Overview
The family of this 72-nucleotide sequence from Microtus ochrogaster is "Small nucleolar RNA SNORD107". The match comes from Rfam's covariance-model search (87 bits). Rfam links the family to the GO terms RNA processing and nucleolus. It is annotated as a C/D-box small nucleolar RNA. The family's consensus secondary structure was predicted with WAR. A reference for the family is Runte et al. (2001), "The IC-SNURF-SNRPN transcript serves as a host for multiple small nucleolar RNA species and as an antisense RNA for UBE3A", Hum Mol Genet. The organism belongs to Microtus, within Eukaryota.

RNA sequence: GAUUUAUGAUGAUAUAGGACCUUGUCUGAUCAAAAUGAUUUUAAAAAAUGAGCUUAAAAUAACUCUGAAAUC
Numbered sequence: 001g002a003u004u005u006a007u008g009a010u011g012a013u014a015u016a017g018g019a020c021c022u023u024g025u026c027u028g029a030u031c032a033a034a035a036u037g038a039u040u041u042u043a044a045a046a047a048a049u050g051a052g053c054u055u056a057a058a059a060u061a062a063c064u065c066u067g068a069a070a071u072c
Base pairs, nucleotide, nucleotide: 001072002071003070004069

The family has 13 seed sequences and 144 matches in Rfam 15.1.